[Rfam]
RNA sequence: ACCGCCCGUCGCUCCUACCGAUGGAACAAAAAGGUGAAUUUGACGGACUUGACCUCGGCCUUGGGGAAAUUAACUGAACCUUUUUGUUUGUAGGAAGGAGAAGUCGUAACAAGGUCUUCGUAGGUGAACCUGCGGAGGGAUCAGGA
Numbered sequence: 001a002c003c004g005c006c007c008g009u010c011g012c013u014c015c016u017a018c019c020g021a022u023g024g025a026a027c028a029a030a031a032a033g034g035u036g037a038a039u040u041u042g043a044c045g046g047a048c049u050u051g052a053c054c055u056c057g058g059c060c061u062u063g064g065g066g067a068a069a070u071u072a073a074c075u076g077a078a079c080c081u082u083u084u085u086g087u088u089u090g091u092a093g094g095a096a097g098g099a100g101a102a103g104u105c106g107u108a109a110c111a112a113g114g115u116c117u118u119c120g121u122a123g124g125u126g127a128a129c130c131u132g133c134g135g136a137g138g139g140a141u142c143a144g145g146a
Stems, first nucleotide, its partner, number of pairs: 002113001004110001007106002010103001012100005018094002022090001024089012038075001040073004048065005115138010
Eukaryotic small subunit ribosomal RNA: a 146-nucleotide part of an RNA from Allovahlkampfia spelaea. A reference for the family is Cannone et al. (2002), "The comparative RNA web (CRW) site: an online database of comparative sequence and structure information for ribosomal, intron, and other RNAs", BMC Bioinformatics. Rfam links the family to the GO terms structural constituent of ribosome and ribosome. The family is grouped with related families in Rfam's "SSU clan". Taxonomically the source falls in Allovahlkampfia (Eukaryota, Discoba, Heterolobosea, Tetramitia).